[Rfam]
A member of the RNA family "L31-Gammaproteobacteria ribosomal protein leader", 51 nucleotides long. A reference for the family is Eckert and Weinberg (2020), "Discovery of 20 novel ribosomal leader candidates in bacteria and archaea", BMC Microbiol. Rfam classes the family as a cis-regulatory leader. Rfam's curators put it in the seed alignment.
RNA sequence: CGCAUGGUGUUCGUGGAAAGCACGGAUGGCGAUGCGGCCCAUAUAUGAGGU
Number, nucleotide and partner (000 for none) at each position: 001c036002g035003c034004a033005u032006g000007g030008u029009g000010u000011u025012c024013g023014u022015g021016g000017a000018a000019a000020g000021c015022a014023c013024g012025g011026a000027u000028g000029g008030c007031g000032a005033u004034g003035c002036g001037g000038c000039c000040c000041a000042u000043a000044u000045a000046u000047g000048a000049g000050g000051u000